[Rfam]
RNA: Purine riboswitch aptamer
RNA sequence: AUUCAGAAUGUUGAAAAAGCUUAUAUAUGGUCGUAAUAGGGACGACCGUUUCUACCCGGAGCCGCAAACUCAGGACUAUAAGCAAUCAUGUACUUAUG
Numbered sequence: 001a002u003u004c005a006g007a008a009u010g011u012u013g014a015a016a017a018a019g020c021u022u023a024u025a026u027a028u029g030g031u032c033g034u035a036a037u038a039g040g041g042a043c044g045a046c047c048g049u050u051u052c053u054a055c056c057c058g059g060a061g062c063c064g065c066a067a068a069c070u071c072a073g074g075a076c077u078a079u080a081a082g083c084a085a086u087c088a089u090g091u092a093c094u095u096a097u098g
Stems, first nucleotide, its partner, number of pairs: 019083007029047006056074002059071003